The family of this 379-nucleotide RNA sequence from Aureobasidium musti is "Nuclear RNase P". The source organism's lineage runs through Eukaryota, Fungi, Ascomycota, leotiomyceta and Aureobasidium. Rfam 15.1 lists 3,848 matches to the family in 1,862 species. For this family Rfam cites "Ribonuclease P: unity and diversity in a tRNA processing ribozyme" (Frank and Pace, Annu Rev Biochem, 1998). It scores 47 bits against the family's covariance model.

RNA sequence: UCCUCACCAAAGCUGCGUUUCUUUGCUUCCACACAGACAAAUGAGCAAUCAUUUCGUCCUUACCUCUUGCAAAUGAGAAAUUCGGAGUAAUCUUCACAUUACCAAACCACUCACCUUGCAAUCUUUCGCGAGUGCGCAAGCUCUGAGUCACUGCCCGCGAGGGCCUGACGUGACACGUCUGCACCUGGCAUCAGAAAUUUCAGAACGUCUUGACCUUUUGAAAGGUUGCUUAACGGCGGCUGGACAGGGAAGAGGUCGCGUUCUAUGGGAGCCGGUGCGAAGAUUGUAUGCGGGUCCAUGACUUGCGAUACUUGAGUGCAAUACGCAGCGUUUCUUCUCUUUUGAAGGGAUAAUUCGAUUCCGAUUACUCGGGUGAGGA
Numbered sequence: 001u002c003c004u005c006a007c008c009a010a011a012g013c014u015g016c017g018u019u020u021c022u023u024u025g026c027u028u029c030c031a032c033a034c035a036g037a038c039a040a041a042u043g044a045g046c047a048a049u050c051a052u053u054u055c056g057u058c059c060u061u062a063c064c065u066c067u068u069g070c071a072a073a074u075g076a077g078a079a080a081u082u083c084g085g086a087g088u089a090a091u092c093u094u095c096a097c098a099u100u101a102c103c104a105a106a107c108c109a110c111u112c113a114c115c116u117u118g119c120a121a122u123c124u125u126u127c128g129c130g131a132g133u134g135c136g137c138a139a140g141c142u143c144u145g146a147g148u149c150a151c152u153g154c155c156c157g158c159g160a161g162g163g164c165c166u167g168a169c170g171u172g173a174c175a176c177g178u179c180u181g182c183a184c185c186u187g188g189c190a191u192c193a194g195a196a197a198u199u200u201c202a203g204a205a206c207g208u209c210u211u212g213a214c215c216u217u218u219u220g221a222a223a224g225g226u227u228g229c230u231u232a233a234c235g236g237c238g239g240c241u242g243g244a245c246a247g248g249g250a251a252g253a254g255g256u257c258g259c260g261u262u263c264u265a266u267g268g269g270a271g272c273c274g275g276u277g278c279g280a281a282g283a284u285u286g287u288a289u290g291c292g293g294g295u296c297c298a299u300g301a302c303u304u305g306c307g308a309u310a311c312u313u314g315a316g317u318g319c320a321a322u323a324c325g326c327a328g329c330g331u332u333u334c335u336u337c338u339c340u341u342u343u344g345a346a347g348g349g350a351u352a353a354u355u356c357g358a359u360u361c362c363g364a365u366u367a368c369u370c371g372g373g374u375g376a377g378g379a
Stems, first nucleotide, its partner, number of pairs: 001379004007373002014328001019323001022073004036058003040054002083363005092282004153164004167179004181278005187272001202264003330351007